Rfam assigns this 118-nucleotide RNA sequence from Rhododendron simsii to the family "Plastid-psbA-1 3UTR RNA". Its Rfam clan is "Plastid-psbA 3UTR RNA clan". It scores 57 bits against the family's covariance model. For this family Rfam cites "Retrograde signaling in plants: A critical review focusing on the GUN pathway and beyond" (Richter et al., Plant Commun, 2023).
[Rfam]
RNA sequence: UCUGGGCUCCAUUUACGAUUGGAUAAGACUUUGUUUCUAGUUUAUAUGAGUUUUUGAAAUUAAGACAGCAAUCACCACUUGUUUUUAUUACUAAUCAAGAGUGCAUUAAUGCUCCUUU
Numbered sequence: 001u002c003u004g005g006g007c008u009c010c011a012u013u014u015a016c017g018a019u020u021g022g023a024u025a026a027g028a029c030u031u032u033g034u035u036u037c038u039a040g041u042u043u044a045u046a047u048g049a050g051u052u053u054u055u056g057a058a059a060u061u062a063a064g065a066c067a068g069c070a071a072u073c074a075c076c077a078c079u080u081g082u083u084u085u086u087a088u089u090a091c092u093a094a095u096c097a098a099g100a101g102u103g104c105a106u107u108a109a110u111g112c113u114c115c116u117u118u
Base pairs, nucleotide, nucleotide: 008023009022010021011020062118063117064116067113068112069111070110072108074106076101078099080097081096083094084093